[Rfam]
RNA: Proteobacterial sRNA sX6
Organism: Xanthomonas boreopolis
RNA sequence: CGACCGAGACGGAGGUGCGACGAUGAAACUCAAGAGUGUCCUGAUGCUGGCGGCGGGCCUUGCGGCCAUCGCCGCCGUGCCGGCCGUGCUGGCGCAGAGCGCGCCGCAGCCGCAGGCGAACGAGGGCGCGGCCGCGCAGAAGCAGGCCGAGCAGAAGGCCCAGACCGAGGCCGAGCGCAAGGCCCAGCGCCGCGCCGCCGCUGCCGCGGAGAAGGCCAAGGCCGAGAAGGAAGGCAAGAUCGGCAACCGCGUCGAGGAAGAGGAAGAAAAGCCCGCGCGCUGAUCCCGGCAGGUCGUUUCGUGGACGCCCCGGUCCCGGCCGGGGCGUCCUUGUUUUUGUGAGU
Number, nucleotide and partner (000 for none) at each position: 001c000002g000003a000004c000005c000006g000007a000008g000009a000010c000011g000012g000013a000014g000015g000016u000017g000018c000019g000020a000021c260022g000023a000024u000025g000026a000027a000028a000029c187030u186031c000032a000033a000034g183035a000036g000037u000038g000039u000040c000041c000042u179043g178044a000045u177046g176047c175048u174049g000050g000051c000052g000053g000054c000055g000056g081057g080058c079059c000060u077061u000062g075063c074064g073065g072066c000067c000068a000069u000070c000071g000072c065073c064074g063075c062076c000077g060078u000079g058080c057081c056082g000083g000084c000085c000086g000087u144088g143089c142090u000091g000092g000093c000094g000095c000096a000097g000098a000099g000100c124101g000102c000103g117104c116105c115106g000107c000108a000109g000110c000111c000112g000113c000114a000115g105116g104117c103118g000119a000120a000121c000122g000123a000124g100125g000126g137127c136128g135129c134130g000131g000132c000133c000134g129135c128136g127137c126138a000139g000140a000141a000142g089143c088144a087145g000146g000147c000148c000149g000150a000151g000152c000153a000154g000155a000156a000157g172158g171159c170160c000161c000162a000163g000164a000165c000166c000167g000168a000169g000170g159171c158172c157173g000174a048175g047176c046177g045178c043179a042180a000181g000182g000183c034184c000185c000186a030187g029188c000189g000190c000191c251192g250193c249194g248195c000196c000197g000198c000199c000200g000201c214202u213203g000204c000205c000206g000207c000208g000209g000210a000211g000212a000213a202214g201215g000216c000217c000218a000219a000220g000221g244222c243223c242224g241225a240226g000227a000228a000229g000230g000231a000232a000233g000234g000235c000236a000237a000238g000239a000240u225241c224242g223243g222244c221245a000246a000247c000248c194249g193250c192251g191252u000253c000254g000255a000256g000257g000258a000259a000260g021261a000262g000263g000264a000265a000266g000267a000268a000269a000270a000271g000272c000273c000274c000275g000276c000277g000278c000279g000280c000281u000282g000283a000284u000285c000286c000287c000288g000289g000290c000291a000292g000293g000294u000295c000296g000297u000298u000299u000300c000301g332302u000303g330304g329305a328306c327307g326308c325309c324310c323311c322312g321313g320314u319315c000316c000317c000318g000319g314320c313321c312322g311323g310324g309325g308326c307327g306328u305329c304330c303331u000332u301333g000334u000335u000336u000337u000338u000339g000340u000341g000342a000343g000344u000